[Rfam]
RNA: c-di-GMP-I riboswitch aptamer
Organism: Pseudoalteromonas ulvae
RNA sequence: CGCUUAUUUUGGCAAACUACCCGAAAGGUUAGGACGCAAAGCUUCCGGUCUACGGUCUUCUAUUAAAGGCUACGACAGCGGGGUUGCUGCA
Numbered sequence: 001c002g003c004u005u006a007u008u009u010u011g012g013c014a015a016a017c018u019a020c021c022c023g024a025a026a027g028g029u030u031a032g033g034a035c036g037c038a039a040a041g042c043u044u045c046c047g048g049u050c051u052a053c054g055g056u057c058u059u060c061u062a063u064u065a066a067a068g069g070c071u072a073c074g075a076c077a078g079c080g081g082g083g084u085u086g087c088u089g090c091a
Base pairs, nucleotide, nucleotide: 012037013036017032018031019030021028022027040085041084042083043082045081046080047079048076049075050074055070056069057068058067